Notes:
Shown here is a 72-nucleotide RNA sequence from Albugo laibachii, a member of the family "Mitochondrion-encoded tmRNA". Its Rfam clan is "tRNA clan". On this family, see Hafez et al., RNA Biol 2013: "A second eukaryotic group with mitochondrion-encoded tmRNA: in silico identification and experimental confirmation". The pairing is the family consensus, mapped onto this sequence. It is annotated as a non-coding RNA gene. Rfam's curators put it in the seed alignment. Rfam links the family to the GO term RNA catabolic process.

RNA sequence: UUUACGGACCCAAAGGCAGUAUUUGGUAUUUCCAUAUUUAUUAAUAGGGAAUAAUAAUAGAAUUGACGUAAA
Numbered sequence: 001u002u003u004a005c006g007g008a009c010c011c012a013a014a015g016g017c018a019g020u021a022u023u024u025g026g027u028a029u030u031u032c033c034a035u036a037u038u039u040a041u042u043a044a045u046a047g048g049g050a051a052u053a054a055u056a057a058u059a060g061a062a063u064u065g066a067c068g069u070a071a072a
Stems, first nucleotide, its partner, number of pairs: 001072006010026005027053007
Dot-bracket structure: ((((((...(((((.......)))))(((((((.............))))))).............))))))